ZMP/ZTP riboswitch aptamer (pfl RNA motif): a 79-nucleotide RNA sequence from Gordonia soli. A search with the family's covariance model found it, with a score of 43 bits. NCBI's taxonomy places the organism under Bacteria, Bacillati, Gordoniaceae, Gordonia, Gordonia soli.
RNA sequence: CGUCGUAAGCGCGACUGGCGUGGCCGGAGUAACCGGCGUGGAGCGUAGAUCCGUGGCAUCGUCCGCCUGGGUGCCCUCA
Number, nucleotide and partner (000 for none) at each position: 001c000002g000003u049004c048005g000006u000007a000008a000009g046010c045011g044012c043013g000014a000015c040016u000017g067018g066019c065020g064021u000022g000023g000024c036025c035026g034027g033028a000029g000030u000031a000032a000033c027034c026035g025036g024037c000038g000039u000040g015041g000042a000043g012044c011045g010046u009047a000048g004049a003050u000051c000052c000053g000054u000055g000056g074057c073058a072059u071060c070061g000062u000063c000064c020065g019066c018067c017068u000069g000070g060071g059072u058073g057074c056075c000076c000077u000078c000079a000